[Rfam]
RNA sequence: AAGUGCGGACAGUCGCUGUUCAUGCUUUUGCAUGGAUAGAGGAAAGUCCAGGCUCGCCCGGGCUGAGAGGCUCGGAGUGUUUGUGCCUGCCGCAAGGCAGGGCAGUCGCGCAAGCGGCUGACGGCGGUGAAAUCGGCUACGUUCCUUUUGGAAUAUGCCGAGAAUAGCCUGAAAGUGCCACAGUGACGUAGCUCUACUGGAAACAGUAGGGGUGGAACGAGGUAAACCCCGCAAGCGAGCAACCCAAAUUUUGGUAGGGGCACUAUCCGAAGGGAAAUGAACCGGAGGAUAGACGGGACAGGAGUCUCGUAGAUAGAUGACUGUCGCUUCCAUGUACCAGGCUGGCUGCCGUGAUGAGUACGGGAAGUACAAAACCUGGCUUACAGCA
Numbered sequence: 001a002a003g004u005g006c007g008g009a010c011a012g013u014c015g016c017u018g019u020u021c022a023u024g025c026u027u028u029u030g031c032a033u034g035g036a037u038a039g040a041g042g043a044a045a046g047u048c049c050a051g052g053c054u055c056g057c058c059c060g061g062g063c064u065g066a067g068a069g070g071c072u073c074g075g076a077g078u079g080u081u082u083g084u085g086c087c088u089g090c091c092g093c094a095a096g097g098c099a100g101g102g103c104a105g106u107c108g109c110g111c112a113a114g115c116g117g118c119u120g121a122c123g124g125c126g127g128u129g130a131a132a133u134c135g136g137c138u139a140c141g142u143u144c145c146u147u148u149u150g151g152a153a154u155a156u157g158c159c160g161a162g163a164a165u166a167g168c169c170u171g172a173a174a175g176u177g178c179c180a181c182a183g184u185g186a187c188g189u190a191g192c193u194c195u196a197c198u199g200g201a202a203a204c205a206g207u208a209g210g211g212g213u214g215g216a217a218c219g220a221g222g223u224a225a226a227c228c229c230c231g232c233a234a235g236c237g238a239g240c241a242a243c244c245c246a247a248a249u250u251u252u253g254g255u256a257g258g259g260g261c262a263c264u265a266u267c268c269g270a271a272g273g274g275a276a277a278u279g280a281a282c283c284g285g286a287g288g289a290u291a292g293a294c295g296g297g298a299c300a301g302g303a304g305u306c307u308c309g310u311a312g313a314u315a316g317a318u319g320a321c322u323g324u325c326g327c328u329u330c331c332a333u334g335u336a337c338c339a340g341g342c343u344g345g346c347u348g349c350c351g352u353g354a355u356g357a358g359u360a361c362g363g364g365a366a367g368u369a370c371a372a373a374a375c376c377u378g379g380c381u382u383a384c385a386g387c388a
Stems, first nucleotide, its partner, number of pairs: 004388003007384001008325007016039008044382003048379005053239005058075006081234005086101006102122001103120006123229002126169003134160004141154005175227002177223003192211008243259003263292006293310006327367005
RNA: Bacterial RNase P class B